[Rfam]
RNA sequence: UCCCUUCGCUUAAUAACGUUAAGCGUGGUGAUGAAUCCCCCUACGCGGAGGGGCUACCAGCCACAUCUUUUGGGGUGAAAGCGAGUUGUGCGGGCUGGCGCGCACUCACCGGGAGGCACCCGGCAUCACCGAAAUAUCCUUAGCCAGAGACGGGUUAUUUGGCCGGUCUCUGGCU
Numbered sequence: 001u002c003c004c005u006u007c008g009c010u011u012a013a014u015a016a017c018g019u020u021a022a023g024c025g026u027g028g029u030g031a032u033g034a035a036u037c038c039c040c041c042u043a044c045g046c047g048g049a050g051g052g053g054c055u056a057c058c059a060g061c062c063a064c065a066u067c068u069u070u071u072g073g074g075g076u077g078a079a080a081g082c083g084a085g086u087u088g089u090g091c092g093g094g095c096u097g098g099c100g101c102g103c104a105c106u107c108a109c110c111g112g113g114a115g116g117c118a119c120c121c122g123g124c125a126u127c128a129c130c131g132a133a134a135u136a137u138c139c140u141u142a143g144c145c146a147g148a149g150a151c152g153g154g155u156u157a158u159u160u161g162g163c164c165g166g167u168c169u170c171u172g173g174c175u
Base pairs, nucleotide, nucleotide: 012137026131027130028129029128030127031126032125033124038053039052040051041050042049061073062072077082083107084106085105086104088101089100090099109123110122111121112120113119142175143174144173145172151166153164154163155162
Dot-bracket structure: ...........(.............((((((((....(((((......))))).......((.........))...(....)((((.(((........)))..)))).(((((.....))))))))))))).....)....((((.....(.(((......))).).....))))

Rfam assigns this 175-nucleotide RNA sequence from Kosakonia cowanii to the family "Gammaproteobacterial sRNA STnc100". The family has 24 seed sequences and 137 matches in Rfam 15.1. It scores 66 bits against the family's covariance model. The family's consensus secondary structure was predicted with CMfinder.